[Rfam]
RNA sequence: CGGGGGUGCAUUGUAGUUGCAUUGCAUGUGCAGCCAAAGUGUGCAAUGCCCCUCCAGUGCAGCCCUG
Numbered sequence: 001c002g003g004g005g006g007u008g009c010a011u012u013g014u015a016g017u018u019g020c021a022u023u024g025c026a027u028g029u030g031c032a033g034c035c036a037a038a039g040u041g042u043g044c045a046a047u048g049c050c051c052c053u054c055c056a057g058u059g060c061a062g063c064c065c066u067g
Base pairs, nucleotide, nucleotide: 001067002066003065004064006063007061008060009059010058011057012056013055015053016052019049021047022046023045024044025043026042027041
The record is a 67-nucleotide RNA from Podarcis muralis, which matches "mir-33 microRNA precursor family" in Rfam.
The literature on the family includes a 2009 paper in BMC Genomics by Li et al., "Direct sequencing and expression analysis of a large number of miRNAs in Aedes aegypti and a multi-species survey of novel mosquito miRNAs".
A search with the family's covariance model found it, with a score of 70 bits.
Its family is annotated with gene silencing by miRNA and RISC complex in the Gene Ontology.
NCBI's taxonomy places the organism under Eukaryota, Bilateria, Dipnotetrapodomorpha, Sauria, Podarcis.